[Rfam]
RNA: U12 minor spliceosomal RNA
RNA sequence: UAGCCUUAAACUAAUGAGUAAGGAAAAUAAACUGCCUCAGUAGUGUUUGGCAGAUUGUGAAUAAUCACUAUCUUUAUUUUUGGAGGGAUACAGGCUGUUCUCGGGAAAGGAUGCCCUCUUCGGUGACCGGAGUACCCUGAACGGCCUUCGCCC
Numbered sequence: 001u002a003g004c005c006u007u008a009a010a011c012u013a014a015u016g017a018g019u020a021a022g023g024a025a026a027a028u029a030a031a032c033u034g035c036c037u038c039a040g041u042a043g044u045g046u047u048u049g050g051c052a053g054a055u056u057g058u059g060a061a062u063a064a065u066c067a068c069u070a071u072c073u074u075u076a077u078u079u080u081u082g083g084a085g086g087g088a089u090a091c092a093g094g095c096u097g098u099u100c101u102c103g104g105g106a107a108a109g110g111a112u113g114c115c116c117u118c119u120u121c122g123g124u125g126a127c128c129g130g131a132g133u134a135c136c137c138u139g140a141a142c143g144g145c146c147u148u149c150g151c152c153c
Stems, first nucleotide, its partner, number of pairs: 004023005032053005039046001054071002057068002086153002089150001092147007101139001103137003107133001